[Rfam]
RNA sequence: UUUUUAGUAUAAGUAUAUUCUAUGCAAUAUCUGGGAUUUACUUAUACUAAAA
Numbered sequence: 001u002u003u004u005u006a007g008u009a010u011a012a013g014u015a016u017a018u019u020c021u022a023u024g025c026a027a028u029a030u031c032u033g034g035g036a037u038u039u040a041c042u043u044a045u046a047c048u049a050a051a052a
Stems, first nucleotide, its partner, number of pairs: 006048007014040002018036004
RNA: mir-1302 microRNA precursor family
Organism: Prolemur simus